[Rfam]
RNA sequence: AAGAUCGCGAGGUCUUGUGGGGAGGAAGCCGCUAGCAAAAUAUGAGCUGACGAACAGAGCAUCCUAUAAGGCUUAACCUGGAGGUGAGGUGGCCAGGGGCACUGAAGCUGGGUGAUCUAACGGGUAGAGUCAAUGAUGCAGUUAGGUAGCGAAAGUUCACGUU
Numbered sequence: 001a002a003g004a005u006c007g008c009g010a011g012g013u014c015u016u017g018u019g020g021g022g023a024g025g026a027a028g029c030c031g032c033u034a035g036c037a038a039a040a041u042a043u044g045a046g047c048u049g050a051c052g053a054a055c056a057g058a059g060c061a062u063c064c065u066a067u068a069a070g071g072c073u074u075a076a077c078c079u080g081g082a083g084g085u086g087a088g089g090u091g092g093c094c095a096g097g098g099g100c101a102c103u104g105a106a107g108c109u110g111g112g113u114g115a116u117c118u119a120a121c122g123g124g125u126a127g128a129g130u131c132a133a134u135g136a137u138g139c140a141g142u143u144a145g146g147u148a149g150c151g152a153a154a155g156u157u158c159a160c161g162u163u
Stems, first nucleotide, its partner, number of pairs: 001016006028163001030161002035156002041148003045143005060138004065133001071130003076125005083109003088103004
RNA: Group II catalytic intron D1-D4-3